RNA: FMN riboswitch aptamer (RFN element)
Organism: Acidovorax sp. MR-S7
RNA sequence: AAGCGUUCUCAGGGCGGGGCGGAAUUCCCCACCGGCGGUAGGCGCGGGGCGACCCGCGCGAGCCCGCGAGCGCCCCGGUGCCGUCUUGUGGAUGGCCGCCGGGGGUCAGCAGACCUGGUGCGAUGCCAGGGCCGACGGUCACAGUCCGGAUGAAAGAGAGCGCGA
Numbered sequence: 001a002a003g004c005g006u007u008c009u010c011a012g013g014g015c016g017g018g019g020c021g022g023a024a025u026u027c028c029c030c031a032c033c034g035g036c037g038g039u040a041g042g043c044g045c046g047g048g049g050c051g052a053c054c055c056g057c058g059c060g061a062g063c064c065c066g067c068g069a070g071c072g073c074c075c076c077g078g079u080g081c082c083g084u085c086u087u088g089u090g091g092a093u094g095g096c097c098g099c100c101g102g103g104g105g106u107c108a109g110c111a112g113a114c115c116u117g118g119u120g121c122g123a124u125g126c127c128a129g130g131g132c133c134g135a136c137g138g139u140c141a142c143a144g145u146c147c148g149g150a151u152g153a154a155a156g157a158g159a160g161c162g163c164g165a
Stems, first nucleotide, its partner, number of pairs: 003163008017029003031145002033134002035067004062132002070110002114130005136148003